[Rfam]
RNA sequence: GCCGAAGUGAUGGAAUUGGUAGACGUGCUGGACUCAAAAUCCAGUGGUGGCGACACCGUGCGGGUUCGAGUCCCGCCUUCGGCA
Number, nucleotide and partner (000 for none) at each position: 001g083002c082003c081004g080005a079006a078007g077008u000009g000010a026011u025012g024013g000014a000015a000016u000017u000018g000019g000020u000021a000022g000023a000024c012025g011026u010027g000028c044029u043030g042031g041032a040033c000034u000035c000036a000037a000038a000039a000040u032041c031042c030043a029044g028045u000046g000047g000048u000049g000050g000051c000052g000053a000054c000055a000056c000057c000058g000059u000060g076061c075062g074063g073064g072065u000066u000067c000068g000069a000070g000071u000072c064073c063074c062075g061076c060077c007078u006079u005080c004081g003082g002083c001084a000
The record is an 84-nucleotide RNA from Peptostreptococcaceae bacterium oral taxon 113, which matches "tRNA" in Rfam. Taxonomically the source falls in Peptostreptococcaceae bacterium oral taxon 113 (Bacteria, Bacillati, Clostridia, Peptostreptococcaceae). Pairs were carried over by alignment from the consensus structure, which is taken from published work. By type it is a transfer RNA.